[Rfam]
RNA sequence: AAAUAGCCCCGAUUGUAGUGGAAAUAAAAGCAGUUUUUUCUUUAAAAACUGCUUUUAUUGCAGCGAAAGCGGGAAAAUGG
Dot-bracket structure: ........(((.((...((...((((.(((((((((((.....))))))))))).))))...))..)).)))........
Shown here is an 80-nucleotide RNA from Flavobacterium aquatile, a member of the family "Flavo-1 RNA". NCBI's taxonomy places the organism under Bacteria, Bacteroidota, Flavobacteriaceae, Flavobacterium, Flavobacterium aquatile. Rfam classes the family as a small RNA.